[Rfam]
RNA sequence: ACAGCACUUUCACAGGUCCGCCCUUGGUCAGUGGGGCCAGGAUUUGGUAGCUGGUGCUGACAGAAAACCCUUGAUUGCAUCCUUGCCCUGUCUGUACCAGUGGCAGCUGUCUCUCAGGGGAACAGAU
Numbered sequence: 001a002c003a004g005c006a007c008u009u010u011c012a013c014a015g016g017u018c019c020g021c022c023c024u025u026g027g028u029c030a031g032u033g034g035g036g037c038c039a040g041g042a043u044u045u046g047g048u049a050g051c052u053g054g055u056g057c058u059g060a061c062a063g064a065a066a067a068c069c070c071u072u073g074a075u076u077g078c079a080u081c082c083u084u085g086c087c088c089u090g091u092c093u094g095u096a097c098c099a100g101u102g103g104c105a106g107c108u109g110u111c112u113c114u115c116a117g118g119g120g121a122a123c124a125g126a127u
Base pairs, nucleotide, nucleotide: 003058004057005056006055007054008053013046014045015044017042018041019040022036023035024034025033069120070119071117072116073115074114077111079110080109083106084105085104086103087102088100089099090098
Rfam assigns this 127-nucleotide RNA sequence from Nannospalax galili to the family "Small nucleolar RNA SNORA30/SNORA37 family". Rfam classes the family as an H/ACA-box small nucleolar RNA. The family's consensus secondary structure was predicted with RNAfold. From the family's description: The members of this family belong to the H/ACA class of snoRNAs that guide the sites of modification of uridines to pseudouridines. Rfam 15.1 lists 407 matches to the family in 132 species. Gene Ontology terms of the family: nucleolus and RNA processing. The source organism's lineage runs through Eukaryota, Theria, Myomorpha, Spalacidae and Nannospalax.